[Rfam]
RNA sequence: AGGCUGCGAUGUCACUCCUCUCCUCCUCCCUGGAGUGGCGUCGGACGAACCUAAGGGCCUCCUCCUCCUCCCUGAGGCCUUAGGUAGAAAAAGACGGCGGCGCCCCUCCUCCUCCCUGGGUGCCGUCGUUUUUU
Dot-bracket structure: ......(((.(((((((...............))))))).))).....((((((((..((...............))))))))))........(((((((((((..............))))))))))).....
This 134-nucleotide sequence from Thioclava indica belongs to the Rfam family "Alphaproteobacterial ar14". Rfam 15.1 lists 784 matches to the family in 332 species. Smr14C2 was renamed NfeR1 (Nodule Formation Efficiency RNA) highly expressed in salt stress and during the symbiotic interaction on legume roots. Taxonomically the source falls in Thioclava (Bacteria, Pseudomonadota, Alphaproteobacteria, Rhodobacterales).